[Rfam]
RNA sequence: GGCAGAUGAUGUCCUUAUCUCACGAUGGUCUGCGGAUGUCCCUGUGGGAAUGGCGACAAUGCCAAUGGCUUAGCUGAUGCCAGGAG
Dot-bracket structure: ((((.........................................................................)))).....
RNA: Small nucleolar RNA SNORD35